RNA: Ribosomal protein L20 leader
RNA sequence: GCAAUAAAGAAGAAGUUAUCCACUUCUCACCUUACGGGUUUGGUCUGGUAAGGUUAAUAGUUGAAGUUUAGGCUUUUUAACUUUGCUUAUUGGAGUAGGGAGUUAAGUGGAUCAUUUCUUUGAUCCACUUUUUUCGUUUUCU
Numbered sequence: 001g002c003a004a005u006a007a008a009g010a011a012g013a014a015g016u017u018a019u020c021c022a023c024u025u026c027u028c029a030c031c032u033u034a035c036g037g038g039u040u041u042g043g044u045c046u047g048g049u050a051a052g053g054u055u056a057a058u059a060g061u062u063g064a065a066g067u068u069u070a071g072g073c074u075u076u077u078u079a080a081c082u083u084u085g086c087u088u089a090u091u092g093g094a095g096u097a098g099g100g101a102g103u104u105a106a107g108u109g110g111a112u113c114a115u116u117u118c119u120u121u122g123a124u125c126c127a128c129u130u131u132u133u134u135c136g137u138u139u140u141c142u
Stems, first nucleotide, its partner, number of pairs: 011027006029054003034049002037045002106129009